[Rfam]
Rfam assigns this 150-nucleotide RNA sequence from Glycine max to the family "MIR1520 microRNA precursor family". Gene Ontology terms of the family: miRNA-mediated post-transcriptional gene silencing and RISC complex. The organism belongs to Glycine subgen. Soja, within Eukaryota. Clan: MIR1520 microRNA precursor clan. The match comes from Rfam's covariance-model search (96 bits).
RNA sequence: UUCUUAUUGGAUGAUGACUGUCACGUGUCAUGUUCUAAUUGGUCAAUGAAAACAACAAUGCAUUUCAUCUUUUCAUGGAGUUGACAUCCAAUAAUAGAACAUGUGGCAAUCAUCAUCCAAUAAGAACGUGAUAAGUGACAGUCAACAUCA
Number, nucleotide and partner (000 for none) at each position: 001u000002u000003c000004u000005u000006a000007u000008u000009g000010g000011a000012u000013g000014a000015u000016g000017a000018c000019u000020g139021u138022c137023a136024c000025g000026u133027g000028u000029c130030a129031u128032g000033u126034u125035c124036u123037a000038a121039u120040u119041g118042g117043u000044c000045a000046a000047u000048g000049a000050a000051a000052a000053c000054a000055a000056c000057a000058a000059u000060g000061c000062a000063u000064u000065u000066c000067a000068u000069c000070u000071u000072u000073u000074c000075a000076u000077g000078g000079a000080g000081u000082u000083g000084a000085c000086a000087u000088c000089c000090a000091a000092u000093a000094a000095u000096a000097g000098a000099a000100c000101a000102u000103g000104u000105g000106g000107c000108a000109a000110u000111c000112a000113u000114c000115a000116u000117c042118c041119a040120a039121u038122a000123a036124g035125a034126a033127c000128g031129u030130g029131a000132u000133a026134a000135g000136u023137g022138a021139c020140a000141g000142u000143c000144a000145a000146c000147a000148u000149c000150a000